[Rfam]
RNA sequence: ACACGGUCCGAGGGGUGCUCCAGGGAGCUGAGAUGGCGCUUGCGCCGAACCCUUAGAACCUGAUCCGGGUCAUGCCGGCGAAGGGACGGAAGCCUUUAGCCUU
Numbered sequence: 001a002c003a004c005g006g007u008c009c010g011a012g013g014g015g016u017g018c019u020c021c022a023g024g025g026a027g028c029u030g031a032g033a034u035g036g037c038g039c040u041u042g043c044g045c046c047g048a049a050c051c052c053u054u055a056g057a058a059c060c061u062g063a064u065c066c067g068g069g070u071c072a073u074g075c076c077g078g079c080g081a082a083g084g085g086a087c088g089g090a091a092g093c094c095u096u097u098a099g100c101c102u103u
Stems, first nucleotide, its partner, number of pairs: 007090004011053004016047001017028004035046004059084003065078004